Shown here is a 137-nucleotide sequence from Chlamydotis macqueenii, a member of the family "Small nucleolar RNA SNORA3/SNORA45 family". Rfam's curators write: The members of this family belong to the H/ACA class of snoRNAs which are thought to guide the sites of modification of uridines to pseudouridines. This family includes mouse snoMBI-28 and human homologues ACA3 (SNORA3) and ACA3-2 (SNORA45).

RNA sequence: AUCGAGACUAGAGUCACAUCUUAACAUGUUUCUGUUUCAUUGUCUUGGUGUGCUGUAGUUCUUGGACAUAAAUGUCUGAUCCUGUUCACUGGCUGCGAUGUCUCCAAUCUCAGCCAGCCAUUGAAUCAGUGACACUA
Numbered sequence: 001a002u003c004g005a006g007a008c009u010a011g012a013g014u015c016a017c018a019u020c021u022u023a024a025c026a027u028g029u030u031u032c033u034g035u036u037u038c039a040u041u042g043u044c045u046u047g048g049u050g051u052g053c054u055g056u057a058g059u060u061c062u063u064g065g066a067c068a069u070a071a072a073u074g075u076c077u078g079a080u081c082c083u084g085u086u087c088a089c090u091g092g093c094u095g096c097g098a099u100g101u102c103u104c105c106a107a108u109c110u111c112a113g114c115c116a117g118c119c120a121u122u123g124a125a126u127c128a129g130u131g132a133c134a135c136u137a
Stems, first nucleotide, its partner, number of pairs: 002065005007059003012054002015052006024043003076129005082123001089117004094112002097109003

Taxonomically the source falls in Chlamydotis (Eukaryota, Deuterostomia, Neognathae, Otidimorphae).